About this RNA
Eukaryotic large subunit ribosomal RNA: a 413-nucleotide part of an RNA from Salmo salar. The family's consensus secondary structure is taken from published work. Rfam's curators put it in the seed alignment. Taxonomically the source falls in Salmo (Eukaryota, Gnathostomata, Actinopteri, Osteoglossocephalai).

RNA sequence: GAUGUGUUGUUGCAAUAGUAAUCCUGCUCAGUACGAGAGGAACCGCAGGUUCAGACAUUUGGUGUAUGUGCUUGGCUGAGGAGCCAAUGGUGCGAAGCUACCAUCUGUGGGAUUAUGACUGAACGCCUCUAAGUCAGAAUCCCCCCUAAACGUAAUGAUACCGUAGCGCCGUGGAGCUUCGGUUGGCCCGGGAUAGCCUGCCUCUUUUGGCAGGUGAGUAGAGCAAAUCGUGACAGGGUCGGGGUGCGGCCGAAUGAGUUGCCGCCCCUCUCCUGAUGCGCACCGCAUGUUUGUGGAGAACCUGGUGCUAAAUCACUCGUAGACGACCUGAUUCUGGGUCAGGGUUUCGUGCGUAGCAGAGCAGCUCACUCGCUGCGAUCUAUUGAAAGUCAGCCUUCGAUCCAAGCUUUUGU
Numbered sequence: 001g002a003u004g005u006g007u008u009g010u011u012g013c014a015a016u017a018g019u020a021a022u023c024c025u026g027c028u029c030a031g032u033a034c035g036a037g038a039g040g041a042a043c044c045g046c047a048g049g050u051u052c053a054g055a056c057a058u059u060u061g062g063u064g065u066a067u068g069u070g071c072u073u074g075g076c077u078g079a080g081g082a083g084c085c086a087a088u089g090g091u092g093c094g095a096a097g098c099u100a101c102c103a104u105c106u107g108u109g110g111g112a113u114u115a116u117g118a119c120u121g122a123a124c125g126c127c128u129c130u131a132a133g134u135c136a137g138a139a140u141c142c143c144c145c146c147u148a149a150a151c152g153u154a155a156u157g158a159u160a161c162c163g164u165a166g167c168g169c170c171g172u173g174g175a176g177c178u179u180c181g182g183u184u185g186g187c188c189c190g191g192g193a194u195a196g197c198c199u200g201c202c203u204c205u206u207u208u209g210g211c212a213g214g215u216g217a218g219u220a221g222a223g224c225a226a227a228u229c230g231u232g233a234c235a236g237g238g239u240c241g242g243g244g245u246g247c248g249g250c251c252g253a254a255u256g257a258g259u260u261g262c263c264g265c266c267c268c269u270c271u272c273c274u275g276a277u278g279c280g281c282a283c284c285g286c287a288u289g290u291u292u293g294u295g296g297a298g299a300a301c302c303u304g305g306u307g308c309u310a311a312a313u314c315a316c317u318c319g320u321a322g323a324c325g326a327c328c329u330g331a332u333u334c335u336g337g338g339u340c341a342g343g344g345u346u347u348c349g350u351g352c353g354u355a356g357c358a359g360a361g362c363a364g365c366u367c368a369c370u371c372g373c374u375g376c377g378a379u380c381u382a383u384u385g386a387a388a389g390u391c392a393g394c395c396u397u398c399g400a401u402c403c404a405a406g407c408u409u410u411u412g413u
Base pairs, nucleotide, nucleotide: 006159007158008157009156010155011154012153013152016148017147018146021051023049024048025047026046027045052107053106054105055104060100061099062098067094068093069092070091071090072087073086074085075084076083077082109143110142111141116136117135118134119133120132165309166308167307168306169305170304171303310411311410312409316330319327336403337402338401339400340399342396343395344394346389347388353383354382355381356380358379361376362375363374364373365372